[Rfam]
The record is a 117-nucleotide sequence from Azoarcus taiwanensis, which matches "Glycine riboswitch aptamer" in Rfam.
The pairing is the family consensus, mapped onto this sequence.
Rfam 15.1 lists 9,425 matches to the family in 5,228 species.
Gene Ontology term of the family: glycine biosynthetic process.
Nucleotides: 117
Stems, first nucleotide, its partner, number of pairs: 007111007020061004063097003066093002070091003076085002
Number, partner (000 for none) and nucleotide at each position: 001000g002000c003000g004000g005000c006000a007111g008110g009109c010108g011107c012106g013105g014000g015000a016000g017000a018000g019000a020061a021060c022059u023058c024000c025000c026000g027000c028000a029000u030000u031000g032000c033000a034000g035000c036000c037000u038000c039000a040000a041000g042000u043000g044000c045000a046000a047000c048000a049000g050000g051000c052000u053000g054000c055000u056000u057000g058023g059022a060021g061020u062000c063097g064096c065095c066093g067092a068000a069000g070091g071090c072089g073000u074000a075000a076085c077084c078000c079000c080000c081000c082000c083000c084077g085076g086000a087000a088000u089072c090071g091070c092067u093066c094000a095065g096064g097063c098000a099000a100000a101000c102000g103000g104000a105013c106012c107011g108010c109009g110008c111007c112000c113000g114000a115000a116000a117000u